[Rfam]
RNA sequence: ACCUCCAGGGGAUAAAGGCCUCCUUUUCUGGAUGGACACUCCCUUCUAAUGGUGAAUGGAACCGCCCCUUUUCAGCAGGCUACUUGCAGCGUCCUGGGAGCCCAGUGUGAUUGCAGCGGCUGUCACCACCCCAGAAAGAAAGCCCCCCCCACGAGA
Numbered sequence: 001a002c003c004u005c006c007a008g009g010g011g012a013u014a015a016a017g018g019c020c021u022c023c024u025u026u027u028c029u030g031g032a033u034g035g036a037c038a039c040u041c042c043c044u045u046c047u048a049a050u051g052g053u054g055a056a057u058g059g060a061a062c063c064g065c066c067c068c069u070u071u072u073c074a075g076c077a078g079g080c081u082a083c084u085u086g087c088a089g090c091g092u093c094c095u096g097g098g099a100g101c102c103c104a105g106u107g108u109g110a111u112u113g114c115a116g117c118g119g120c121u122g123u124c125a126c127c128a129c130c131c132c133a134g135a136a137a138g139a140a141a142g143c144c145c146c147c148c149c150c151a152c153g154a155g156a
Base pairs, nucleotide, nucleotide: 003155004154005153008148009147010146011145013139015044017042018041019035020034023031024030045135046134047133052073054070055069058067059066075126076122077121078120084116085115086114087113088112089111094109
RNA: FGF-1 internal ribosome entry site (IRES)